[Rfam]
RNA sequence: CACUAGCCCUGAUAGUAGCGGCAUCCUUUAUAGCCGGGGUUCGGCUGUAAAGAUAUAGCGGAUAGCAGGAAACAGC
Numbered sequence: 001c002a003c004u005a006g007c008c009c010u011g012a013u014a015g016u017a018g019c020g021g022c023a024u025c026c027u028u029u030a031u032a033g034c035c036g037g038g039g040u041u042c043g044g045c046u047g048u049a050a051a052g053a054u055a056u057a058g059c060g061g062a063u064a065g066c067a068g069g070a071a072a073c074a075g076c
Base pairs, nucleotide, nucleotide: 009068010067011066013064014063018059019058023054024053025052029049030048031047032046033045034044035043036042
Notes
A member of the RNA family "Flavo-1 RNA" from Flavobacterium sp. 123, 76 nucleotides long. The source organism's lineage runs through Bacteria, Bacteroidota, Flavobacteriia, Flavobacteriales and Flavobacterium. The base pairs follow the family's consensus structure, which is taken from published work. By type it is a small RNA.